[Rfam]
RNA sequence: UUCUGCACGUUCCCUUAUCACUUCUUCCGCCGAGCUCGUGUCUAUGAUUAAGCUGGACGGAGAACUGAUAAGGGCCCGUGCUGAA
Numbered sequence: 001u002u003c004u005g006c007a008c009g010u011u012c013c014c015u016u017a018u019c020a021c022u023u024c025u026u027c028c029g030c031c032g033a034g035c036u037c038g039u040g041u042c043u044a045u046g047a048u049u050a051a052g053c054u055g056g057a058c059g060g061a062g063a064a065c066u067g068a069u070a071a072g073g074g075c076c077c078g079u080g081c082u083g084a085a
Stems, first nucleotide, its partner, number of pairs: 012074009022064006030056002

mir-184 microRNA precursor family: an 85-nucleotide sequence from Branchiostoma lanceolatum.
Its family is annotated with gene silencing by miRNA and RISC complex in the Gene Ontology.
It scores 74 bits against the family's covariance model.
Pairs were carried over by alignment from the consensus structure, which was predicted with PFOLD.